[Rfam]
RNA sequence: CCUAUGAGUAGAGGCGCGGAACGCAUCAGUACCGUCCCGGAGAAGGGCAUCGAGGAAAGGGCGGAAAAGGGCGUUCUGCCGAAGUGUGGGUGGCUGCCGCAACCGCCCUCGCUGGUCGGCUUGCUGAAAAAGGAGUCGGCUGCCGCGGUCGAGCCGCGGAGCGCUACCGUGAGG
Numbered sequence: 001c002c003u004a005u006g007a008g009u010a011g012a013g014g015c016g017c018g019g020a021a022c023g024c025a026u027c028a029g030u031a032c033c034g035u036c037c038c039g040g041a042g043a044a045g046g047g048c049a050u051c052g053a054g055g056a057a058a059g060g061g062c063g064g065a066a067a068a069g070g071g072c073g074u075u076c077u078g079c080c081g082a083a084g085u086g087u088g089g090g091u092g093g094c095u096g097c098c099g100c101a102a103c104c105g106c107c108c109u110c111g112c113u114g115g116u117c118g119g120c121u122u123g124c125u126g127a128a129a130a131a132g133g134a135g136u137c138g139g140c141u142g143c144c145g146c147g148g149u150c151g152a153g154c155c156g157c158g159g160a161g162c163g164c165u166a167c168c169g170u171g172a173g174g
Base pairs, nucleotide, nucleotide: 008167009166010165011164016079017078018077019076020075021074022073023072024071032064033063034062035061036060037059083113084112085111086110088108089107090106091105092104093103114141115140116139117138118137119136120135121134122133143159144158145157146156147155148154149153
RNA: Lysine riboswitch aptamer